[Rfam]
RNA sequence: CCAUGGUGCAUUGUUGUUGCAUUGCAUGUCAUUUUGGACCUUGUGCAAUGUUUCUUCAGUGCAGUAUGG
Numbered sequence: 001c002c003a004u005g006g007u008g009c010a011u012u013g014u015u016g017u018u019g020c021a022u023u024g025c026a027u028g029u030c031a032u033u034u035u036g037g038a039c040c041u042u043g044u045g046c047a048a049u050g051u052u053u054c055u056u057c058a059g060u061g062c063a064g065u066a067u068g069g
Stems, first nucleotide, its partner, number of pairs: 001069004006065001007063007016054001019051001021049007